RNA sequence: GGUCUUGAGUGUCAGCACGAAGCCCCGGCUAGCUGACCGGCAACCCUCCAGUCGCGGUGGGGUGCCCCGGGUGACGACCAGGCCCGCCACCACCGGUGAACGGGCAAGCGCAACCC
Dot-bracket structure: ((((....(.((((((....((......)).)))))))(((..(((.((......))..))).))).........))))..(((((.((((...))))..)))))...........
SAM (S-adenosyl methionine) riboswitch aptamer: a 116-nucleotide sequence from Pseudactinotalea sp. HY158. The family is grouped with related families in Rfam's "SAM clan". Lineage of the source: Bacteria > Actinomycetota > Actinomycetes > Cellulomonadaceae > Pseudactinotalea. It scores 105 bits against the family's covariance model.